[Rfam]
A member of the RNA family "mir-16 microRNA precursor family" from Mauremys mutica, 73 nucleotides long. Taxonomically the source falls in Mauremys (Eukaryota, Sarcopterygii, Testudinata, Durocryptodira). Clan: mir-15 clan. It scores 38 bits against the family's covariance model.
RNA sequence: UGAAGGCAGCAGCACAGAAGUAAGGGUGGCAUGGUCUGAUAUUGCUACCCUUAUUUCUGUGCUGCUGCUAGCA
Numbered sequence: 001u002g003a004a005g006g007c008a009g010c011a012g013c014a015c016a017g018a019a020g021u022a023a024g025g026g027u028g029g030c031a032u033g034g035u036c037u038g039a040u041a042u043u044g045c046u047a048c049c050c051u052u053a054u055u056u057c058u059g060u061g062c063u064g065c066u067g068c069u070a071g072c073a
Stems, first nucleotide, its partner, number of pairs: 001073002005069011017056001019055008